RNA sequence: ACUGAUUUAUAAGCGCCAGAGCUUGCGUGAUGAAUGAUGCUUUUGAAGGGACUCGGUUUGUAUGGCGUUACGGCGUUAAGCCAACACUAUAACCGAUCGCAAAGGUACGUUCAUACGGGAAGCUGACGAGGUGGAGGUGUUCGAAUUGUUCGGCGGGGACCUCCCGGUUAUAGCUGCCAACCGAAAGCCGAUAUGCAAAUGGACCAGGGCAACCGGUCCGACAAACGUACGGCAGGCAGAAGG
Numbered sequence: 001a002c003u004g005a006u007u008u009a010u011a012a013g014c015g016c017c018a019g020a021g022c023u024u025g026c027g028u029g030a031u032g033a034a035u036g037a038u039g040c041u042u043u044u045g046a047a048g049g050g051a052c053u054c055g056g057u058u059u060g061u062a063u064g065g066c067g068u069u070a071c072g073g074c075g076u077u078a079a080g081c082c083a084a085c086a087c088u089a090u091a092a093c094c095g096a097u098c099g100c101a102a103a104g105g106u107a108c109g110u111u112c113a114u115a116c117g118g119g120a121a122g123c124u125g126a127c128g129a130g131g132u133g134g135a136g137g138u139g140u141u142c143g144a145a146u147u148g149u150u151c152g153g154c155g156g157g158g159a160c161c162u163c164c165c166g167g168u169u170a171u172a173g174c175u176g177c178c179a180a181c182c183g184a185a186a187g188c189c190g191a192u193a194u195g196c197a198a199a200u201g202g203a204c205c206a207g208g209g210c211a212a213c214c215g216g217u218c219c220g221a222c223a224a225a226c227g228u229a230c231g232g233c234a235g236g237c238a239g240a241a242g243g
Stems, first nucleotide, its partner, number of pairs: 020124005026118001133164005141153004165183005187233004192229002201219005207214002
This 243-nucleotide sequence from Paenibacillus protaetiae belongs to the Rfam family "glmS glucosamine-6-phosphate activated ribozyme aptamer".
Lineage of the source: Bacteria > Bacillati > Caryophanales > Paenibacillaceae > Paenibacillus.
This entry contains a glucosamine-6-phosphate activated ribozyme that is found in the mRNA for GlmS. GlmS is an enzyme that uses fructose-6-phosphate and glutamine to generate glucosamine-6-phosphate.
The family's RNA type in Rfam is riboswitch.